RNA sequence: CUAUCAGAGUUAGUCAAUGUCGUUACCCUCUAGUUAGGCUGUGAGAAUACUAAUGUUGA
Numbered sequence: 001c002u003a004u005c006a007g008a009g010u011u012a013g014u015c016a017a018u019g020u021c022g023u024u025a026c027c028c029u030c031u032a033g034u035u036a037g038g039c040u041g042u043g044a045g046a047a048u049a050c051u052a053a054u055g056u057u058g059a
Base pairs, nucleotide, nucleotide: 009054010053011052012051013050014049020044021043022042023041027038028037029036
RNA: Transposase-1 RNA
Organism: Ligilactobacillus apodemi